[Rfam]
Fluoride riboswitch aptamer (crcB RNA motif): a 78-nucleotide sequence from Vagococcus acidifermentans.

RNA sequence: AGAAAGAAAGGGAAUGAUGUCUCCCUUGAACACGUUCGUUCUAAACCGCCGCAACCGGCUAAUGACUUCUGGCCUUGA
Numbered sequence: 001a002g003a004a005a006g007a008a009a010g011g012g013a014a015u016g017a018u019g020u021c022u023c024c025c026u027u028g029a030a031c032a033c034g035u036u037c038g039u040u041c042u043a044a045a046c047c048g049c050c051g052c053a054a055c056c057g058g059c060u061a062a063u064g065a066c067u068u069c070u071g072g073c074c075u076u077g078a
Stems, first nucleotide, its partner, number of pairs: 010025004016069002019066003048059004
Source information:
A search with the family's covariance model found it, with a score of 41 bits. Pairs were carried over by alignment from the consensus structure, which is taken from published work. Lineage of the source: Bacteria > Bacillati > Bacilli > Enterococcaceae > Vagococcus.